[Rfam]
This 84-nucleotide RNA sequence from Desulfuromonas sp. AOP6 belongs to the Rfam family "c-di-GMP-I riboswitch aptamer".
A search with the family's covariance model found it, with a score of 52 bits.
The family's consensus secondary structure is taken from published work.
NCBI's taxonomy places the organism under Bacteria, Pseudomonadati, Thermodesulfobacteriota, Desulfuromonadaceae, Desulfuromonas.

RNA sequence: CUCCGAAAAAGGUAAACCCAUCGCGAGGUGGGGACACAAAGUCACAGAUCCACUUCGGGUGAAGGGGAUGGCUGGGCUGUUCGG
Numbered sequence: 001c002u003c004c005g006a007a008a009a010a011g012g013u014a015a016a017c018c019c020a021u022c023g024c025g026a027g028g029u030g031g032g033g034a035c036a037c038a039a040a041g042u043c044a045c046a047g048a049u050c051c052a053c054u055u056c057g058g059g060u061g062a063a064g065g066g067g068a069u070g071g072c073u074g075g076g077c078u079g080u081u082c083g084g
Stems, first nucleotide, its partner, number of pairs: 012037002017032006040078004045074003048069003053064004